[Rfam]
This 35-nucleotide RNA sequence belongs to the Rfam family "DUF805b RNA". Rfam classes the family as a cis-regulatory element.
RNA sequence: AGGGCGGCAUCCGAAAAGCCCGAAAAGAGUAGGAA
Numbered sequence: 001a002g003g004g005c006g007g008c009a010u011c012c013g014a015a016a017a018g019c020c021c022g023a024a025a026a027g028a029g030u031a032g033g034a035a
Base pairs, nucleotide, nucleotide: 002021003020004019005018010034011033012032